c-di-AMP riboswitch aptamer (ydaO/yuaA leader): a 142-nucleotide RNA sequence from Paenibacillus sp. TCA20. The source organism's lineage runs through Bacteria, Bacillati, Bacilli, Caryophanales and Paenibacillus.
RNA sequence: UCAUUAGAACAGCCAAAUUCCUGGCAUCUGGGAAGCGGGGGAACCACUUUUAUGGGUGAAUUGAUCUCGCAACAUAAGUGAUCAUAGGGGAACCUUCUACCGAAUCCUUAAGCUAACCUCGCAGGCAUUGGAAGGGGAUUAU
Numbered sequence: 001u002c003a004u005u006a007g008a009a010c011a012g013c014c015a016a017a018u019u020c021c022u023g024g025c026a027u028c029u030g031g032g033a034a035g036c037g038g039g040g041g042a043a044c045c046a047c048u049u050u051u052a053u054g055g056g057u058g059a060a061u062u063g064a065u066c067u068c069g070c071a072a073c074a075u076a077a078g079u080g081a082u083c084a085u086a087g088g089g090g091a092a093c094c095u096u097c098u099a100c101c102g103a104a105u106c107c108u109u110a111a112g113c114u115a116a117c118c119u120c121g122c123a124g125g126c127a128u129u130g131g132a133a134g135g136g137g138a139u140u141a142u
Stems, first nucleotide, its partner, number of pairs: 012126003018034007035122006054107003062084004087101002090098001